[Rfam]
RNA sequence: UCGGUACUUAUUGCAGCUGCUGGCCACUGCACAAGAUUAGAUUUAAGACUCUUGUGCGUGUGACAGCGGCUAUUGUAAGAGGCCAUAUUAGCAUC
Numbered sequence: 001u002c003g004g005u006a007c008u009u010a011u012u013g014c015a016g017c018u019g020c021u022g023g024c025c026a027c028u029g030c031a032c033a034a035g036a037u038u039a040g041a042u043u044u045a046a047g048a049c050u051c052u053u054g055u056g057c058g059u060g061u062g063a064c065a066g067c068g069g070c071u072a073u074u075g076u077a078a079g080a081g082g083c084c085a086u087a088u089u090a091g092c093a094u095c
Stems, first nucleotide, its partner, number of pairs: 005081001007079005015071008024062001025060002028058006035051002
RNA: mir-210 microRNA precursor family